Shown here is a 150-nucleotide RNA sequence from Gracilibacillus halophilus, a member of the family "FMN riboswitch aptamer (RFN element)".
RNA sequence: UGAUUCCUUUGGGGCAGGGUGUAAUUCCCGACCGACGGUAAUAAGCGUUAUAGCUUAAAGUCCGUGACCCGGAUCGCCACGAGUGGUGUGAAGGUGGAUUUGGUGAGAGGCCAAAACCGACAGUAAUAGUCUGGAUGGGAAAAGGAAUGC
Numbered sequence: 001u002g003a004u005u006c007c008u009u010u011g012g013g014g015c016a017g018g019g020u021g022u023a024a025u026u027c028c029c030g031a032c033c034g035a036c037g038g039u040a041a042u043a044a045g046c047g048u049u050a051u052a053g054c055u056u057a058a059a060g061u062c063c064g065u066g067a068c069c070c071g072g073a074u075c076g077c078c079a080c081g082a083g084u085g086g087u088g089u090g091a092a093g094g095u096g097g098a099u100u101u102g103g104u105g106a107g108a109g110g111c112c113a114a115a116a117c118c119g120a121c122a123g124u125a126a127u128a129g130u131c132u133g134g135a136u137g138g139g140a141a142a143a144g145g146a147a148u149g150c
Stems, first nucleotide, its partner, number of pairs: 003148008017029003031130002033119002035065004060117002069094002099115005121133003
About the family: The RFN element is a highly conserved domain that is found frequently in the 5'-untranslated regions of prokaryotic mRNAs that encode for flavin mononucleotide (FMN) biosynthesis and transport proteins. This element is a metabolite-dependent riboswitch that directly binds FMN in the absence of proteins. In Bacillus subtilis, the riboswitch most likely controls gene expression by causing premature transcription termination within the 5' untranslated region of the ribDEAHT operon and precluding access to the ribosome-binding site of ypaA mRNA.The FMN riboswitch structure, reported in present an FMN-bound six-stem junction, adopts a butterfly-like scaffold, stapled together by opposingly directed but nearly identically folded peripheral domains. The organism belongs to Gracilibacillus halophilus, within Bacteria. The family's consensus secondary structure is taken from published work.